[Rfam]
This 83-nucleotide sequence from Trifolium pratense belongs to the Rfam family "Small nucleolar RNA Z159/U59". Its Rfam clan is "SNORD59 clan". The family's consensus secondary structure was predicted with PFOLD. The source organism's lineage runs through Eukaryota, Tracheophyta, Euphyllophyta, Spermatophyta and Trifolium. Rfam classes the family as a C/D-box small nucleolar RNA.

RNA sequence: GCCUCUGAUGAUGAUCAAACAAAUACUUUCGUUCUUCCGAGUUGUCCAUGGGGAAAUUAUAUGGAGACCUGAACUGAAGAGGC
Numbered sequence: 001g002c003c004u005c006u007g008a009u010g011a012u013g014a015u016c017a018a019a020c021a022a023a024u025a026c027u028u029u030c031g032u033u034c035u036u037c038c039g040a041g042u043u044g045u046c047c048a049u050g051g052g053g054a055a056a057u058u059a060u061a062u063g064g065a066g067a068c069c070u071g072a073a074c075u076g077a078a079g080a081g082g083c
Stems, first nucleotide, its partner, number of pairs: 003081004